Description
The record is a 54-nucleotide RNA from Oncorhynchus kisutch, which matches "UnaL2 LINE 3' element" in Rfam. It scores 59 bits against the family's covariance model. The base pairs follow the family's consensus structure, which is taken from published work. The literature on the family includes a 2004 paper in RNA by Baba et al., "Solution structure of an RNA stem-loop derived from the 3' conserved region of eel LINE UnaL2". The organism belongs to Oncorhynchus, within Eukaryota. Rfam links the family to the GO term transposition, RNA-mediated. The eel long interspersed element (LINE) UnaL2 and its partner short interspersed element (SINE) share a conserved 3' tail containing a stem-loop that is critical for their retrotransposition. Presumably, the first step of retrotransposition is the recognition of their 3' tails by UnaL2-encoded reverse transcriptase. The solution structure of a 17-nucleotide RNA derived from the 3' tail of UnaL2 was determined by NMR. The family's RNA type in Rfam is cis-regulatory element.
RNA sequence: UUAUAAUUAUUAUGCAAGUCACUCUGGAUAAGAGUGUCUGCUAAAUGACCGACA
Numbered sequence: 001u002u003a004u005a006a007u008u009a010u011u012a013u014g015c016a017a018g019u020c021a022c023u024c025u026g027g028a029u030a031a032g033a034g035u036g037u038c039u040g041c042u043a044a045a046u047g048a049c050c051g052a053c054a
Stems, first nucleotide, its partner, number of pairs: 013043001014041003020036006